[Rfam]
RNA sequence: AAAUGGUGGAGCAGCUACCACCUCAAAAACGGGCGGAACCGAAAAGCCAGACGAGUAGGGACUUA
Dot-bracket structure: .....((((........))))..........(((....[[.....))).........]]......
RNA: DUF805 RNA
Organism: Niabella drilacis